[Rfam]
RNA: Small nucleolar RNA U109
RNA sequence: UUGCAUGUUGGGAACUCAUGUUCUGCUCCUAAUUCUGUUGGGAGUAAGACUACAUGUAUUUGCAGCAUGCUAUAUCAAAUAGAGCAGUUUUCAGGGCUCCUGGCCAUACAGUGAAGGUUAAGUGGUAGUCUAUUUCUUCUACAUAA
Numbered sequence: 001u002u003g004c005a006u007g008u009u010g011g012g013a014a015c016u017c018a019u020g021u022u023c024u025g026c027u028c029c030u031a032a033u034u035c036u037g038u039u040g041g042g043a044g045u046a047a048g049a050c051u052a053c054a055u056g057u058a059u060u061u062g063c064a065g066c067a068u069g070c071u072a073u074a075u076c077a078a079a080u081a082g083a084g085c086a087g088u089u090u091u092c093a094g095g096g097c098u099c100c101u102g103g104c105c106a107u108a109c110a111g112u113g114a115a116g117g118u119u120a121a122g123u124g125g126u127a128g129u130c131u132a133u134u135u136c137u138u139c140u141a142c143a144u145a146a
Base pairs, nucleotide, nucleotide: 003070004069005068006067007066008065022048024046025045026044027043028042029041084139086137087136096126097125100122101120102119103118104117105116107114